[Rfam]
RNA sequence: GCAUGGCUGAAUUCUGCACUAGCUUUCCUCAGUAGCUGAUGCAGUCAGACACCAUGCCAGAGCAAAUUCCCUUUUUCCCUCUGUGCCUGGUGUGCCUUUUUCUGGAAUGGGCAUGCCCUGGGAAGGGAGCACAUCA
Number, nucleotide and partner (000 for none) at each position: 001g057002c056003a055004u054005g053006g052007c000008u000009g000010a000011a000012u000013u000014c044015u043016g042017c041018a040019c000020u000021a000022g000023c000024u000025u000026u000027c000028c000029u000030c000031a000032g000033u000034a000035g000036c000037u000038g000039a000040u018041g017042c016043a015044g014045u000046c000047a000048g000049a000050c000051a000052c006053c005054a004055u003056g002057c001058c000059a000060g000061a000062g000063c000064a000065a000066a000067u000068u000069c000070c000071c129072u128073u127074u125075u124076u123077c122078c121079c120080u000081c000082u000083g000084u000085g000086c000087c000088u000089g117090g116091u115092g114093u113094g112095c111096c110097u109098u000099u000100u000101u000102c000103u000104g000105g000106a000107a000108u000109g097110g096111g095112c094113a093114u092115g091116c090117c089118c000119u000120g079121g078122g077123a076124a075125g074126g000127g073128a072129g071130c000131a000132c000133a000134u000135c000136a000
The family of this 136-nucleotide sequence from Donacobius atricapilla is "Small nucleolar RNA SNORA15". A reference for the family is Huttenhofer et al. (2001), "RNomics: an experimental approach that identifies 201 candidates for novel, small, non-messenger RNAs in mouse", EMBO J. The organism belongs to Donacobius, within Eukaryota. ACA15 is a member of the H/ACA class of snoRNA that guide the sites of modification of uridines to pseudouridines. The base pairs follow the family's consensus structure, which was predicted with RNAfold. By type it is an H/ACA-box small nucleolar RNA. The match comes from Rfam's covariance-model search (73 bits). Its family is annotated with RNA processing and nucleolus in the Gene Ontology.